[Rfam]
RNA sequence: UGGUAGAUGCACCCUGAUUAAAGCCCUAGAGUUUAUCUCUGGGGUUUUCUUUU
Dot-bracket structure: .(((......))).........(((((((((.....)))))))))........
RNA: Nitrogen stress-induced RNA 1
Organism: Leptolyngbya sp. Cla-17